[Rfam]
RNA sequence: AAAGGAUUUCUUUGAUGAUUCCAAAAAAGCAUAGUUCAACUGAGCAUCGUAUGCUGAAACUUUUUCCAUCUGAUUUGCACGUCAGUCUGAGAUUUCUC
Number, nucleotide and partner (000 for none) at each position: 001a000002a000003a000004g095005g094006a093007u092008u091009u090010c089011u000012u000013u000014g000015a000016u000017g000018a000019u000020u000021c000022c000023a000024a000025a000026a000027a000028a000029g000030c000031a000032u000033a000034g000035u000036u000037c000038a000039a000040c000041u000042g000043a000044g000045c000046a000047u000048c000049g000050u000051a000052u000053g000054c000055u000056g000057a000058a000059a000060c000061u000062u000063u000064u000065u000066c000067c000068a000069u000070c000071u000072g000073a000074u000075u000076u000077g000078c000079a000080c000081g000082u000083c000084a000085g000086u000087c000088u000089g010090a009091g008092a007093u006094u005095u004096c000097u000098c000